[Rfam]
RNA sequence: AUGCCAGUUCAGUGUGUCUGCUCAACUUGAACAUGUUUUGCAGAUUGUCUGUUUGAAGGGGACUGGUAGAGUAAAGCCACAGUACGAGCCUUGGAGACUUUGUUGUCUUUGAGGUCCCAAGAGAUGGCUACACCU
Dot-bracket structure: ..(((((.........(((((..................)))))..................)))))........((((........(((((((.(((......))).))))))).........)))).......
Numbered sequence: 001a002u003g004c005c006a007g008u009u010c011a012g013u014g015u016g017u018c019u020g021c022u023c024a025a026c027u028u029g030a031a032c033a034u035g036u037u038u039u040g041c042a043g044a045u046u047g048u049c050u051g052u053u054u055g056a057a058g059g060g061g062a063c064u065g066g067u068a069g070a071g072u073a074a075a076g077c078c079a080c081a082g083u084a085c086g087a088g089c090c091u092u093g094g095a096g097a098c099u100u101u102g103u104u105g106u107c108u109u110u111g112a113g114g115u116c117c118c119a120a121g122a123g124a125u126g127g128c129u130a131c132a133c134c135u
Stems, first nucleotide, its partner, number of pairs: 003067005017044005076128004088115007096107003